A member of the RNA family "Ribosomal protein L10 leader" from Lactobacillus corticis, 127 nucleotides long. By type it is a cis-regulatory leader. NCBI's taxonomy places the organism under Bacteria, Bacillati, Bacilli, Lactobacillaceae, Lactobacillus. Rfam describes the family as follows. This family is a putative r-protein leader autoregulatory structure found in B. subtilis and other low-GC Gram-positive bacteria. It is located in the 5' untranslated regions of mRNAs encoding ribosomal proteins L10 and L12 (rplJ-rplL). A Rho-independent transcription terminator structure that is probably involved in regulation is included at the 3' end. The family's consensus secondary structure was predicted with CMfinder.
RNA sequence: UUCAAGUGAUAAAUUCUACCUAAGACUCGGGUGAUCAUCACGGAUCUCAAUAACCCGCCGAGGCCAGAAGAUUAUGAAGACGAUUAACGCUCCAUGUCUCUUGGCAUGGAGUUUUUUAGGCCUAAAU
Numbered sequence: 001u002u003c004a005a006g007u008g009a010u011a012a013a014u015u016c017u018a019c020c021u022a023a024g025a026c027u028c029g030g031g032u033g034a035u036c037a038u039c040a041c042g043g044a045u046c047u048c049a050a051u052a053a054c055c056c057g058c059c060g061a062g063g064c065c066a067g068a069a070g071a072u073u074a075u076g077a078a079g080a081c082g083a084u085u086a087a088c089g090c091u092c093c094a095u096g097u098c099u100c101u102u103g104g105c106a107u108g109g110a111g112u113u114u115u116u117u118a119g120g121c122c123u124a125a126a127u
Stems, first nucleotide, its partner, number of pairs: 028057005033046003089112010